[Rfam]
RNA sequence: UGAUGUAAGUGUCAAAAGUAUAAAAAGACGUUUCUGCUUGCAGAAUAAGACUUUUUUACUUGGGACACGCUAAACACCGAAAACGCAAUAAAAUGUCGUGAAUACGGCAUUUUAUGAAAGUUUGAGGUGUUUAAGGAUUGCGUGAAUUGCAUAGCAAUGUAGCAAUCCUGAUAUAUCA
Numbered sequence: 001u002g003a004u005g006u007a008a009g010u011g012u013c014a015a016a017a018g019u020a021u022a023a024a025a026a027g028a029c030g031u032u033u034c035u036g037c038u039u040g041c042a043g044a045a046u047a048a049g050a051c052u053u054u055u056u057u058a059c060u061u062g063g064g065a066c067a068c069g070c071u072a073a074a075c076a077c078c079g080a081a082a083a084c085g086c087a088a089u090a091a092a093a094u095g096u097c098g099u100g101a102a103u104a105c106g107g108c109a110u111u112u113u114a115u116g117a118a119a120g121u122u123u124g125a126g127g128u129g130u131u132u133a134a135g136g137a138u139u140g141c142g143u144g145a146a147u148u149g150c151a152u153a154g155c156a157a158u159g160u161a162g163c164a165a166u167c168c169u170g171a172u173a174u175a176u177c178a
Base pairs, nucleotide, nucleotide: 001178002177003176004175005174006173007172010067011066012065013064017060018059021058022057023056024055025054026053027052031048032047033044034043035042036041071133072132073131074130075129076128077127078126081123082122083121084120089114090113091112092111093110094109095108096107097106098105099104135168136167137166138165139164140163141162146158147157148156149155

This 178-nucleotide RNA sequence belongs to the Rfam family "Clostridiales-1 RNA". It is annotated as a small RNA. Rfam's curators put it in the seed alignment.